[Rfam]
The family of this 102-nucleotide RNA from Pontibacillus halophilus is "Purine riboswitch aptamer".
RNA sequence: AAAAUAUUCAUACAUGCCCUUCAUAUAUCCUCGAUGAUAAGGAUCGAGAGUCUCUACCGGAGUACCGUAAAUACUCUGACUAUGAAGGCAGGACACCUAUGU
Numbered sequence: 001a002a003a004a005u006a007u008u009c010a011u012a013c014a015u016g017c018c019c020u021u022c023a024u025a026u027a028u029c030c031u032c033g034a035u036g037a038u039a040a041g042g043a044u045c046g047a048g049a050g051u052c053u054c055u056a057c058c059g060g061a062g063u064a065c066c067g068u069a070a071a072u073a074c075u076c077u078g079a080c081u082a083u084g085a086a087g088g089c090a091g092g093a094c095a096c097c098u099a100u101g102u
Stems, first nucleotide, its partner, number of pairs: 018088008030048006058078007

Riboswitches are metabolite binding domains within certain messenger RNAs that serve as precision sensors for their corresponding targets. Allosteric rearrangement of mRNA structure is mediated by ligand binding, and this results in modulation of gene expression. A class of riboswitches that selectively recognises guanine and becomes saturated at concentrations as low as 5 nM. In Bacillus subtilis, this mRNA motif is located on at least five separate transcriptional units that together encode 17 genes that are mostly involved in purine transport and purine nucleotide biosynthesis. Its Rfam clan is "Purine riboswitches". The family's consensus secondary structure is taken from published work.